[Rfam]
RNA sequence: UUCUCCAAGGAUGAUCAGAACUAUAAUUUUCCUCUGAGGUCAUGUACAAUGUGGAAGAUUCAUGGAGACCUGAACUGAGGAGUA
Numbered sequence: 001u002u003c004u005c006c007a008a009g010g011a012u013g014a015u016c017a018g019a020a021c022u023a024u025a026a027u028u029u030u031c032c033u034c035u036g037a038g039g040u041c042a043u044g045u046a047c048a049a050u051g052u053g054g055a056a057g058a059u060u061c062a063u064g065g066a067g068a069c070c071u072g073a074a075c076u077g078a079g080g081a082g083u084a
Base pairs, nucleotide, nucleotide: 003082004081005080006079
The family of this 84-nucleotide RNA sequence from Musa acuminata is "Small nucleolar RNA Z159/U59". Lineage of the source: Eukaryota > Streptophyta > Streptophytina > Liliopsida > Musa acuminata. Rfam links the family to the GO terms nucleolus and RNA processing. Pairs were carried over by alignment from the consensus structure, which was predicted with PFOLD.